[Rfam]
RNA sequence: UAUUGUGGUGGUUUCUCUGUGUGGCAGCUCUGUAACUGUGUCAGGGCUGCCUUAAACCACCACAGAGAUCAGAAGGGAGAAGGCUGUGCUGAGAACUUCUGCAAGCUUGUGGUUUUCAGCAUGUUGUUCAGCUCCUAUAUUA
Numbered sequence: 001u002a003u004u005g006u007g008g009u010g011g012u013u014u015c016u017c018u019g020u021g022u023g024g025c026a027g028c029u030c031u032g033u034a035a036c037u038g039u040g041u042c043a044g045g046g047c048u049g050c051c052u053u054a055a056a057c058c059a060c061c062a063c064a065g066a067g068a069u070c071a072g073a074a075g076g077g078a079g080a081a082g083g084c085u086g087u088g089c090u091g092a093g094a095a096c097u098u099c100u101g102c103a104a105g106c107u108u109g110u111g112g113u114u115u116u117c118a119g120c121a122u123g124u125u126g127u128u129c130a131g132c133u134c135c136u137a138u139a140u141u142a
Stems, first nucleotide, its partner, number of pairs: 005063007023051003027047006076135004101127004
The family of this 142-nucleotide RNA sequence from Indicator maculatus is "Small nucleolar RNA SNORA12". Rfam's curators write: U108 belongs to the H/ACA family of snoRNAs. The sequence is predicted to guide the pseudouridylation of the U372 residue in the 28S rRNA subunit. The source organism's lineage runs through Eukaryota, Saurischia, Telluraves, Piciformes and Indicator. A reference for the family is Gu et al. (2005), "A novel experimental approach for systematic identification of box H/ACA snoRNAs from eukaryotes", Nucleic Acids Res. By type it is an H/ACA-box small nucleolar RNA.